[Rfam]
RNA sequence: AAUGAUACUUCUACCUAGUCCUAAGACAUCCUAUGGAGGGUAGCUAGUUUAGAUACUGGAAAAUAAAUAUCUAUGUUUGAGAGAGAAUAUAGAGAUUUUUU
Numbered sequence: 001a002a003u004g005a006u007a008c009u010u011c012u013a014c015c016u017a018g019u020c021c022u023a024a025g026a027c028a029u030c031c032u033a034u035g036g037a038g039g040g041u042a043g044c045u046a047g048u049u050u051a052g053a054u055a056c057u058g059g060a061a062a063a064u065a066a067a068u069a070u071c072u073a074u075g076u077u078u079g080a081g082a083g084a085g086a087a088u089a090u091a092g093a094g095a096u097u098u099u100u101u
Stems, first nucleotide, its partner, number of pairs: 011043005044059005060101004065097002070093001073090005
About this RNA:
A member of the RNA family "dinG RNA" from Vallitalea guaymasensis, 101 nucleotides long. The family's consensus secondary structure is taken from published work.